This 151-nucleotide RNA sequence from Meiothermus sp. QL-1 belongs to the Rfam family "SAM riboswitch aptamer (S box leader)". A search with the family's covariance model found it, with a score of 72 bits.
[Rfam]
Nucleotides: 151
Base pairs, nucleotide, nucleotide: 003149004148005147006146007145008144013042014041015040016039017038021031022030023029026101027100028099043094044093045092046091048090049089051085052084053083054082055081056080098143103140104139105138106137107136108135
Number, partner (000 for none) and nucleotide at each position: 001000c002000a003149c004148u005147u006146a007145u008144c009000c010000a011000g012000a013042g014041c015040a016039g017038c018000c019000g020000a021031g022030g023029g024000a025000a026101c027100g028099g029023c030022c031021c032000g033000a034000c035000g036000a037000c038017g039016c040015u041014g042013c043094g044093g045092c046091a047000a048090c049089c050000c051085g052084c053083c054082c055081g056080g057000a058000g059000g060000u061000c062000u063000g064000u065000u066000c067000a068000u069000c070000g071000c072000c073000a074000g075000g076000u077000c078000u079000a080056c081055u082054g083053g084052g085051c086000u087000u088000c089049g090048g091046u092045g093044c094043c095000a096000a097000g098143u099028c100027c101026g102000g103140c104139c105138u106137g107136g108135g109000u110000u111000u112000c113000g114000c115000u116000a117000g118000g119000c120000a121000c122000a123000g124000c125000g126000a127000c128000c129000c130000c131000c132000a133000a134000c135108c136107c137106c138105a139104g140103g141000a142000a143098a144008g145007a146006u147005a148004a149003g150000g151000a